[Rfam]
RNA sequence: GACUUAUCCAGAAAGACCGAGGGAAAUGGCCCUGUGACGUCUUAGCAACCUGUUGCCAAAUAAGGUGCUAAUUCCUUCUCCUAACAGAGAAAGAUAAGAU
Numbered sequence: 001g002a003c004u005u006a007u008c009c010a011g012a013a014a015g016a017c018c019g020a021g022g023g024a025a026a027u028g029g030c031c032c033u034g035u036g037a038c039g040u041c042u043u044a045g046c047a048a049c050c051u052g053u054u055g056c057c058a059a060a061u062a063a064g065g066u067g068c069u070a071a072u073u074c075c076u077u078c079u080c081c082u083a084a085c086a087g088a089g090a091a092a093g094a095u096a097a098g099a100u
Stems, first nucleotide, its partner, number of pairs: 001100001003098006013043005021032003026077001028075002044069004049065002051062004073092001078089003
The family of this 100-nucleotide RNA sequence from Pedobacter rhizosphaerae is "SAM riboswitch aptamer (S box leader)". The SAM riboswitch is found upstream of a number of genes which code for proteins involved in methionine or cysteine biosynthesis in Gram-positive bacteria. The organism belongs to Pedobacter, within Bacteria.